[Rfam]
RNA sequence: GCUAAUUAUCAAGAAUCUCAAAAGAGAUAGCAACCUGCAAUAACAAGCAAGGUGCUGAAAAUGAUAAGCCAUUUCUUUGGAACAAAUGUUAAUCAC
Numbered sequence: 001g002c003u004a005a006u007u008a009u010c011a012a013g014a015a016u017c018u019c020a021a022a023a024g025a026g027a028u029a030g031c032a033a034c035c036u037g038c039a040a041u042a043a044c045a046a047g048c049a050a051g052g053u054g055c056u057g058a059a060a061a062u063g064a065u066a067a068g069c070c071a072u073u074u075c076u077u078u079g080g081a082a083c084a085a086a087u088g089u090u091a092a093u094c095a096c
Stems, first nucleotide, its partner, number of pairs: 006067005015028005029056003034052003037048002041092001043090001069080003
RNA: SAM-I/IV (S-adenosyl methionine) riboswitch aptamer